The record is a 72-nucleotide sequence from Desulforamulus profundi, which matches "S10-Clostridia ribosomal protein leader" in Rfam. On this family, see Eckert and Weinberg, BMC Microbiol 2020: "Discovery of 20 novel ribosomal leader candidates in bacteria and archaea". It scores 38 bits against the family's covariance model.

RNA sequence: GGCUAGCGAUGAAGUGGAAGGUUGCUCGCACCCCGAGGUAAUUUUCACGGAGCAGUCCGCACAAUCGGACGA
Numbered sequence: 001g002g003c004u005a006g007c008g009a010u011g012a013a014g015u016g017g018a019a020g021g022u023u024g025c026u027c028g029c030a031c032c033c034c035g036a037g038g039u040a041a042u043u044u045u046c047a048c049g050g051a052g053c054a055g056u057c058c059g060c061a062c063a064a065u066c067g068g069a070c071g072a
Stems, first nucleotide, its partner, number of pairs: 014048003018045004025037004055070005